Shown here is a 266-nucleotide RNA from a Candidatus Poribacteria bacterium, a member of the family "Bacterial large signal recognition particle RNA". Its Rfam clan is "SRP clan". From the family's description: The signal recognition particle (SRP) is a universally conserved ribonucleoprotein involved in the co-translational targeting of proteins to membranes. Pairs were carried over by alignment from the consensus structure, which is taken from published work.
RNA sequence: CUAUGCUAAGUGGGGAGGUAGCGGUGCCCUGUAUCUGCAAUCCGCUAUAGCAGAACUGAAUCCCCAGCAUGCGGCCUAUCUUUGUGGGGUCUGUCCCAUGCACGUGGCGUUGAUAGUUGGGUCUUGAGCAACGAAAGCUUAUUGAACCCCGUCAGAUCCGGAAGGAAGCAGCGGUAAAUAGGUCUUUUCGUGUGACGCAAGGUAGCCUAACUUGAGCAAACGACAUGGGCAACGCUCGGAAAGGUUUGUCAACUCUGGGUGCAUAG
Numbered sequence: 001c002u003a004u005g006c007u008a009a010g011u012g013g014g015g016a017g018g019u020a021g022c023g024g025u026g027c028c029c030u031g032u033a034u035c036u037g038c039a040a041u042c043c044g045c046u047a048u049a050g051c052a053g054a055a056c057u058g059a060a061u062c063c064c065c066a067g068c069a070u071g072c073g074g075c076c077u078a079u080c081u082u083u084g085u086g087g088g089g090u091c092u093g094u095c096c097c098a099u100g101c102a103c104g105u106g107g108c109g110u111u112g113a114u115a116g117u118u119g120g121g122u123c124u125u126g127a128g129c130a131a132c133g134a135a136a137g138c139u140u141a142u143u144g145a146a147c148c149c150c151g152u153c154a155g156a157u158c159c160g161g162a163a164g165g166a167a168g169c170a171g172c173g174g175u176a177a178a179u180a181g182g183u184c185u186u187u188u189c190g191u192g193u194g195a196c197g198c199a200a201g202g203u204a205g206c207c208u209a210a211c212u213u214g215a216g217c218a219a220a221c222g223a224c225a226u227g228g229g230c231a232a233c234g235c236u237c238g239g240a241a242a243g244g245u246u247u248g249u250c251a252a253c254u255c256u257g258g259g260u261g262c263a264u265a266g
Stems, first nucleotide, its partner, number of pairs: 001266006009057003012030004017025001019023001034054005063259005073250003079244005085238004092231002096228005104221002107217002115212008123201004128196001129192002132190005137183006149174004157166003